A member of the RNA family "Y RNA" from Piliocolobus tephrosceles, 102 nucleotides long.
Pairs were carried over by alignment from the consensus structure, which is taken from published work.
The family has 104 seed sequences and 26,986 matches in Rfam 15.1.
Y RNAs are components of the Ro ribonucleoprotein particle (Ro RNP), in association with Ro60 and La proteins. The Y RNAs and Ro60 and La proteins are well conserved, but the function of the Ro RNP is not known. In humans the RNA component can be one of four small RNAs -- hY1, hY3, hY4 and hY5. These small RNAs are predicted to fold into a conserved secondary structure containing three stem structures.
Taxonomically the source falls in Piliocolobus (Eukaryota, Euteleostomi, Theria, Haplorrhini).

[Rfam]
RNA sequence: GACUGGUCCAAAUGCAGUUGUGGUUACAAUUAAUUGAUCACAACCAGUUACAGAAUUCUUUGUUCCUUCUCUAUUCCCACUACCUCACUUGACUAGCCUUAA
Numbered sequence: 001g002a003c004u005g006g007u008c009c010a011a012a013u014g015c016a017g018u019u020g021u022g023g024u025u026a027c028a029a030u031u032a033a034u035u036g037a038u039c040a041c042a043a044c045c046a047g048u049u050a051c052a053g054a055a056u057u058c059u060u061u062g063u064u065c066c067u068u069c070u071c072u073a074u075u076c077c078c079a080c081u082a083c084c085u086c087a088c089u090u091g092a093c094u095a096g097c098c099u100u101a102a
Base pairs, nucleotide, nucleotide: 001098003096004095005094006093007092008091010090011089014086016081017080018079020077022076028064029063030062032060033059